[Rfam]
RNA sequence: GGCAGAUGAUGGCUUAUUCUCACGAUGGUCUGCGGAUGCCACUGUGGGCAGUGCCGAUAAUGCCAAUGGCUUAGCUGAUGCCAGGAA
Numbered sequence: 001g002g003c004a005g006a007u008g009a010u011g012g013c014u015u016a017u018u019c020u021c022a023c024g025a026u027g028g029u030c031u032g033c034g035g036a037u038g039c040c041a042c043u044g045u046g047g048g049c050a051g052u053g054c055c056g057a058u059a060a061u062g063c064c065a066a067u068g069g070c071u072u073a074g075c076u077g078a079u080g081c082c083a084g085g086a087a
Stems, first nucleotide, its partner, number of pairs: 001082004
Source information
Rfam assigns this 87-nucleotide RNA sequence from Hipposideros armiger to the family "Small nucleolar RNA SNORD35". U35 is a C/D box snoRNA located in intron 6 of ribosomal protein L13A and intron 3 of ribosomal protein S11 in humans and at homologous positions in mouse and chicken ribosomal protein genes. The source organism's lineage runs through Eukaryota, Chordata, Gnathostomata, Amniota and Hipposideros.